RNA sequence: GAAUCAUCUAGAGUGGCGGAGGGACUGGCCCUGUGAUGCCCGGCAACCUACCUGAAAUAUAGGUAAGGUGCUAAUUCCUGCAUUUCCUUGAAUGGAGAUGAAAGAUGAGGG
Dot-bracket structure: ...(((((....(.(((...(((.[.[[)))......))))((((.((.((((.......))))..))))))...(]].]((((((........))))))..))))))...
RNA: SAM riboswitch aptamer (S box leader)